[Rfam]
RNA sequence: UCGACUCCAGUAUGUAGUCGAUAUAGCCAACUGACGUUGUUAGUGAAUACACUUGUUCACAGUAUCUAGGGCCAGUCACUUUGAUGUGAUUGGUCUUUUUUUU
Numbered sequence: 001u002c003g004a005c006u007c008c009a010g011u012a013u014g015u016a017g018u019c020g021a022u023a024u025a026g027c028c029a030a031c032u033g034a035c036g037u038u039g040u041u042a043g044u045g046a047a048u049a050c051a052c053u054u055g056u057u058c059a060c061a062g063u064a065u066c067u068a069g070g071g072c073c074a075g076u077c078a079c080u081u082u083g084a085u086g087u088g089a090u091u092g093g094u095c096u097u098u099u100u101u102u103u
Stems, first nucleotide, its partner, number of pairs: 001021006037069003043060007072093008
RNA: Qrr RNA
Organism: Vibrio astriarenae